[Rfam]
RNA sequence: UCAAGUCUUUGUGGCGGGGUGUAAGUCCCUACCGAUGGUAAAGUCCAUGACCUGCGAAACAGCAGCUGAUCUGGUGAAAUUCCAGAACCGACGGUUAAAGUCCGGAUGAGAAAAGACAUUU
Number, nucleotide and partner (000 for none) at each position: 001u000002c000003a119004a000005g117006u116007c115008u114009u113010u112011g000012u000013g000014g000015c000016g000017g029018g028019g027020u000021g000022u000023a000024a000025g000026u000027c019028c018029c017030u000031a101032c100033c090034g089035a048036u047037g046038g045039u000040a000041a000042a000043g088044u087045c038046c037047a036048u035049g000050a000051c000052c065053u064054g000055c000056g000057a000058a000059a000060c000061a000062g000063c000064a053065g052066c000067u000068g000069a000070u086071c085072u084073g083074g082075u000076g000077a000078a000079a000080u000081u000082c074083c073084a072085g071086a070087a044088c043089c034090g033091a000092c104093g103094g102095u000096u000097a000098a000099a000100g032101u031102c094103c093104g092105g000106a000107u000108g000109a000110g000111a000112a010113a009114a008115g007116a006117c005118a000119u003120u000121u000
RNA: FMN riboswitch aptamer (RFN element)